[Rfam]
RNA sequence: CAGUGUUACAACUCUUUUAGAAUUUCUCUAGCAGGUUUCUGGUCUUUACUGAAAAGCCCCA
Numbered sequence: 001c002a003g004u005g006u007u008a009c010a011a012c013u014c015u016u017u018u019a020g021a022a023u024u025u026c027u028c029u030a031g032c033a034g035g036u037u038u039c040u041g042g043u044c045u046u047u048a049c050u051g052a053a054a055a056g057c058c059c060c061a
Stems, first nucleotide, its partner, number of pairs: 034058005040051004

Rfam assigns this 61-nucleotide RNA sequence from Cercocebus atys to the family "U7 small nuclear RNA". The base pairs follow the family's consensus structure, which was predicted with PFOLD. The match comes from Rfam's covariance-model search (58 bits). The organism belongs to Cercocebus, within Eukaryota.